Nucleotides: 133
Stems, first nucleotide, its partner, number of pairs: 003060005011051002014049006022039002025036003073125006081116001084113004089107005
Number, partner (000 for none) and nucleotide at each position: 001000u002000u003060g004059c005058a006057u007056c008000c009000a010000c011051u012050g013000a014049u015048a016047g017046a018045c019044c020000u021000g022039a023038g024000g025036c026035a027034g028000g029000c030000u031000u032000c033000a034027u035026u036025g037000g038023c039022u040000u041000c042000u043000a044019g045018g046017u047016u048015u049014g050012c051011a052000u053000a054000g055000a056007g057006a058005u059004g060003c061000u062000a063000a064000a065000a066000u067000g068000a069000g070000u071000u072000u073125u074124c075123c076122u077121u078120g079000c080000g081116c082000u083000u084113u085112c086111u087110g088000a089107c090106u091105g092104c093103u094000a095000c096000a097000u098000c099000c100000g101000a102000a103093a104092g105091c106090a107089g108000a109000a110087c111086a112085g113084a114000u115000u116081g117000a118000g119000u120078u121077g122076a123075g124074g125073a126000a127000u128000a129000c130000a131000u132000g133000u
A member of the RNA family "Small nucleolar RNA SNORA31" from Mola mola, 133 nucleotides long. By type it is an H/ACA-box small nucleolar RNA. From the family's description: ACA31 (SNORA31) belongs to the H/ACA class of snoRNAs which are thought to guide the sites of modification of uridines to pseudouridines. ACA31 is predicted to guide the pseudouridylation of U3713 in 28S rRNA and U218 in 18S rRNA. This family includes the mouse homologue snoMBI-161. On this family, see Huttenhofer et al., EMBO J 2001: "RNomics: an experimental approach that identifies 201 candidates for novel, small, non-messenger RNAs in mouse".